Rfam assigns this 98-nucleotide RNA sequence from Capsicum annuum to the family "Small nucleolar RNA Z161/Z228".

[Rfam]
RNA sequence: AAGCCGCUUGAUGAUUUUUUUGGAUAAUAUUCUCACGACGGUCGUCUGAGGUACAUUUAUGUGCCUAACUGAUGUAAUAUCCAAAUUCUCUGAUGGUU
Numbered sequence: 001a002a003g004c005c006g007c008u009u010g011a012u013g014a015u016u017u018u019u020u021u022g023g024a025u026a027a028u029a030u031u032c033u034c035a036c037g038a039c040g041g042u043c044g045u046c047u048g049a050g051g052u053a054c055a056u057u058u059a060u061g062u063g064c065c066u067a068a069c070u071g072a073u074g075u076a077a078u079a080u081c082c083a084a085a086u087u088c089u090c091u092g093a094u095g096g097u098u
Base pairs, nucleotide, nucleotide: 001098002097004095052063053062054061

Notes
Taxonomically the source falls in Capsicum (Eukaryota, Viridiplantae, Tracheophyta, lamiids). Gene Ontology terms of the family: nucleolus and RNA processing. The family's RNA type in Rfam is C/D-box small nucleolar RNA.